[Rfam]
RNA sequence: UGCCCCCUCCUGCUCUGACUUUAUUGCACUACUGUUGUGUGCAGAGCAGUGCAAUAGUAUUGUCAAAGCAUCUGAGGGCAGC
Numbered sequence: 001u002g003c004c005c006c007c008u009c010c011u012g013c014u015c016u017g018a019c020u021u022u023a024u025u026g027c028a029c030u031a032c033u034g035u036u037g038u039g040u041g042c043a044g045a046g047c048a049g050u051g052c053a054a055u056a057g058u059a060u061u062g063u064c065a066a067a068g069c070a071u072c073u074g075a076g077g078g079c080a081g082c
Stems, first nucleotide, its partner, number of pairs: 002079003007074001011070004016065004023055008034042001

Rfam assigns this 82-nucleotide sequence from Serilophus lunatus to the family "mir-301 microRNA precursor family". Gene Ontology terms of the family: miRNA-mediated post-transcriptional gene silencing and RISC complex. On this family, see Houbaviy et al., Dev Cell 2003: "Embryonic stem cell-specific MicroRNAs". Rfam 15.1 lists 1,415 matches to the family in 640 species. The match comes from Rfam's covariance-model search (79 bits).